[Rfam]
RNA: leuA-Halobacteria RNA
RNA sequence: AGACUCGGAGGAUAGAGGAAGUCGCCGCGAGGCGGCUGGGCGUGAAAUUCGGC
Numbered sequence: 001a002g003a004c005u006c007g008g009a010g011g012a013u014a015g016a017g018g019a020a021g022u023c024g025c026c027g028c029g030a031g032g033c034g035g036c037u038g039g040g041c042g043u044g045a046a047a048u049u050c051g052g053c
Stems, first nucleotide, its partner, number of pairs: 020037007